[Rfam]
RNA sequence: AUUCCUGACAAGGGGAGCUUGCCGCAUCGCAGGCUGAGAGUUGGCUGAAGAGCCAUGACCCUAAACCUGAUUUGGAUAAUGCCAACGUAGGGACAAAAGCUCUUUUGACA
Numbered sequence: 001a002u003u004c005c006u007g008a009c010a011a012g013g014g015g016a017g018c019u020u021g022c023c024g025c026a027u028c029g030c031a032g033g034c035u036g037a038g039a040g041u042u043g044g045c046u047g048a049a050g051a052g053c054c055a056u057g058a059c060c061c062u063a064a065a066c067c068u069g070a071u072u073u074g075g076a077u078a079a080u081g082c083c084a085a086c087g088u089a090g091g092g093a094c095a096a097a098a099g100c101u102c103u104u105u106u107g108a109c110a
Base pairs, nucleotide, nucleotide: 006098011062012061013060014059016056017034018033019032020031021030042055043054044053045052066091067090068089069088072085073084074083075082

A member of the RNA family "TPP riboswitch aptamer (THI element)" from Phoenicibacter congonensis, 110 nucleotides long. Pairs were carried over by alignment from the consensus structure, which is taken from published work. It scores 54 bits against the family's covariance model.